[Rfam]
RNA sequence: GAUCCUCUGCAGUGUACGAGGUGCUUUCAUUAACCGCUCUUUGCCUUUGAUAUAUUCCGGGAGCUGAACCCGCCGUGGAAGCUGCUAGGCCGUAAAUCGGAAAGCAAACGCUGCGGAGGAGGCGCCCACCUUAACCUAAAAAGGACUAGAGCCUUUGGGCAUACGGCACAGGCGGAGGAUCA
Numbered sequence: 001g002a003u004c005c006u007c008u009g010c011a012g013u014g015u016a017c018g019a020g021g022u023g024c025u026u027u028c029a030u031u032a033a034c035c036g037c038u039c040u041u042u043g044c045c046u047u048u049g050a051u052a053u054a055u056u057c058c059g060g061g062a063g064c065u066g067a068a069c070c071c072g073c074c075g076u077g078g079a080a081g082c083u084g085c086u087a088g089g090c091c092g093u094a095a096a097u098c099g100g101a102a103a104g105c106a107a108a109c110g111c112u113g114c115g116g117a118g119g120a121g122g123c124g125c126c127c128a129c130c131u132u133a134a135c136c137u138a139a140a141a142a143g144g145a146c147u148a149g150a151g152c153c154u155u156u157g158g159g160c161a162u163a164c165g166g167c168a169c170a171g172g173c174g175g176a177g178g179a180u181c182a
Base pairs, nucleotide, nucleotide: 002180003179004178005177006176007175008174009173010172012169013168014167015166017165018164036152037151038150039149041148043146044144045143059127060126061125063123064122065121073116074115075114076113077112078111085104086103090100091099092098
RNA: 6S / SsrS RNA